[Rfam]
RNA sequence: AAUGAUAAAUGGAGCAACACUUGUGCGUGAAGCGGGUCAGGGGAGGAAUCCAGCAGCCCUAAGCGAGGUCGAGUGUGUGCUCUUUUAUUUUUGAUAAU
Number, nucleotide and partner (000 for none) at each position: 001a000002a000003u000004g092005a091006u000007a089008a088009a085010u000011g083012g082013a081014g080015c077016a000017a076018c075019a074020c073021u072022u071023g000024u067025g000026c065027g064028u063029g000030a000031a000032g000033c000034g059035g058036g057037u056038c000039a000040g000041g000042g051043g050044a049045g000046g000047a000048a000049u044050c043051c042052a000053g000054c000055a000056g037057c036058c035059c034060u000061a000062a000063g028064c027065g026066a000067g024068g000069u000070c000071g022072a021073g020074u019075g018076u017077g015078u000079g000080c014081u013082c012083u011084u000085u009086u000087a000088u008089u007090u000091u005092u004093g000094a000095u000096a000097a000098u000
The family of this 98-nucleotide RNA sequence from Streptococcus sp. zg-36 is "Bacterial small signal recognition particle RNA". It is annotated as a non-coding RNA gene. Taxonomically the source falls in Streptococcus (Bacteria, Bacilli, Lactobacillales, Streptococcaceae). Rfam's curators write: The signal recognition particle (SRP) is a universally conserved ribonucleoprotein involved in the co-translational targeting of proteins to membranes. For this family Rfam cites "SRPDB: Signal Recognition Particle Database" (Rosenblad et al., Nucleic Acids Res, 2003).